[Rfam]
Source information: The record is a 172-nucleotide RNA sequence from Oryza glumipatula, which matches "MIR807 microRNA precursor family" in Rfam. For this family Rfam cites "Rice embryogenic calli express a unique set of microRNAs, suggesting regulatory roles of microRNAs in plant post-embryogenic development" (Luo et al., FEBS Lett, 2006). Its family is annotated with RISC complex and miRNA-mediated post-transcriptional gene silencing in the Gene Ontology. Taxonomically the source falls in Oryza (Eukaryota, Euphyllophyta, Magnoliopsida, Poales).

RNA sequence: ACAUAUAUUUUGGUUAUGUAGUUUCACAAAACUAUGUGGCUGUUUCACCUAGGACGAGGACAUGGCAUCCUAUUAUCAGCCAUCGCACGAAAUUAAUAUGAUGCCACGUCCUCAGACUAGAUGAAACAACCACAUCAUAUCACGGGUGAAUCUAUUCAUCGAUAGUGUGGUU
Numbered sequence: 001a002c003a004u005a006u007a008u009u010u011u012g013g014u015u016a017u018g019u020a021g022u023u024u025c026a027c028a029a030a031a032c033u034a035u036g037u038g039g040c041u042g043u044u045u046c047a048c049c050u051a052g053g054a055c056g057a058g059g060a061c062a063u064g065g066c067a068u069c070c071u072a073u074u075a076u077c078a079g080c081c082a083u084c085g086c087a088c089g090a091a092a093u094u095a096a097u098a099u100g101a102u103g104c105c106a107c108g109u110c111c112u113c114a115g116a117c118u119a120g121a122u123g124a125a126a127c128a129a130c131c132a133c134a135u136c137a138u139a140u141c142a143c144g145g146g147u148g149a150a151u152c153u154a155u156u157c158a159u160c161g162a163u164a165g166u167g168u169g170g171u172u
Stems, first nucleotide, its partner, number of pairs: 001171002004169004009164001011162001013160001015158001018155002021152001023150005031138001034135002037132003041128004047122001050119002059110003065104005071098005082093002